RNA sequence: AGCUCAUCCAGAGGGGCAGAGGGAACGGCCCGUUGAAGCCCCGGCAACCGGUGUCGGUCCGUCGCGAUCACUUUCGCGAGGUCGACCGGCCACGCAGGUGCCAAGUCCGACCCGUCCGCGGGACAGAUGAGGG
Numbered sequence: 001a002g003c004u005c006a007u008c009c010a011g012a013g014g015g016g017c018a019g020a021g022g023g024a025a026c027g028g029c030c031c032g033u034u035g036a037a038g039c040c041c042c043g044g045c046a047a048c049c050g051g052u053g054u055c056g057g058u059c060c061g062u063c064g065c066g067a068u069c070a071c072u073u074u075c076g077c078g079a080g081g082u083c084g085a086c087c088g089g090c091c092a093c094g095c096a097g098g099u100g101c102c103a104a105g106u107c108c109g110a111c112c113c114g115u116c117c118g119c120g121g122g123a124c125a126g127a128u129g130a131g132g133g
Stems, first nucleotide, its partner, number of pairs: 003131006013042005021031003026109003043102004048098002051093003106125001111122004
The family of this 133-nucleotide sequence from Allosaccharopolyspora coralli is "SAM riboswitch aptamer (S box leader)". The base pairs follow the family's consensus structure, which is taken from published work. NCBI's taxonomy places the organism under Bacteria, Bacillati, Pseudonocardiales, Pseudonocardiaceae, Allosaccharopolyspora. A search with the family's covariance model found it, with a score of 74 bits.